[Rfam]
RNA sequence: GGGAAAUGAGGAGUGGUAUAAGCUCGCAAUUAUUACUAUGCGAGAGGGGUGCCCGCCCCAAAUAAGCCUGUUACGACAACAGGGGCACCCCAAUGACUUUACCAUCUGAUCCC
Numbered sequence: 001g002g003g004a005a006a007u008g009a010g011g012a013g014u015g016g017u018a019u020a021a022g023c024u025c026g027c028a029a030u031u032a033u034u035a036c037u038a039u040g041c042g043a044g045a046g047g048g049g050u051g052c053c054c055g056c057c058c059c060a061a062a063u064a065a066g067c068c069u070g071u072u073a074c075g076a077c078a079a080c081a082g083g084g085g086c087a088c089c090c091c092a093a094u095g096a097c098u099u100u101a102c103c104a105u106c107u108g109a110u111c112c113c
Stems, first nucleotide, its partner, number of pairs: 001113004014104005023044005046091006052084002068082004
Dot-bracket structure: ((((.........(((((....(((((............))))).((((((((..............((((.......)))))).))))))........))))).....))))
RNA: Small nucleolar RNA Z279/snoR105/snoR108
Organism: Sorghum bicolor